[Rfam]
RNA: SAM riboswitch aptamer (S box leader)
Organism: Virgibacillus phasianinus
RNA sequence: UUCUUAUCAAGAGAGGUGGAGGGAAAGGCCCUUUGAAACCUCGGCAACAGGUUUAGAUAAACACUGUGCCAAUUCCUACAGGCUGAAUGUCUGGAAGAUAAGAA
Numbered sequence: 001u002u003c004u005u006a007u008c009a010a011g012a013g014a015g016g017u018g019g020a021g022g023g024a025a026a027g028g029c030c031c032u033u034u035g036a037a038a039c040c041u042c043g044g045c046a047a048c049a050g051g052u053u054u055a056g057a058u059a060a061a062c063a064c065u066g067u068g069c070c071a072a073u074u075c076c077u078a079c080a081g082g083c084u085g086a087a088u089g090u091c092u093g094g095a096a097g098a099u100a101a102g103a104a
Stems, first nucleotide, its partner, number of pairs: 001104008013042005021031003026077003043070004048066002050062001052060002074096001079093005